[Rfam]
RNA sequence: UUUACAAACUGCAAAUAAUCUGCCAAAAUACCUAAUCGCGUAGGUCUGAAAAAUUCAGACCCAUUCUUAAAUAAAAAAAGAAUGUCCAAGCGUG
Numbered sequence: 001u002u003u004a005c006a007a008a009c010u011g012c013a014a015a016u017a018a019u020c021u022g023c024c025a026a027a028a029u030a031c032c033u034a035a036u037c038g039c040g041u042a043g044g045u046c047u048g049a050a051a052a053a054u055u056c057a058g059a060c061c062c063a064u065u066c067u068u069a070a071a072u073a074a075a076a077a078a079a080g081a082a083u084g085u086c087c088a089a090g091c092g093u094g
Stems, first nucleotide, its partner, number of pairs: 002018003037094005043061007062084007
RNA: ATPC RNA motif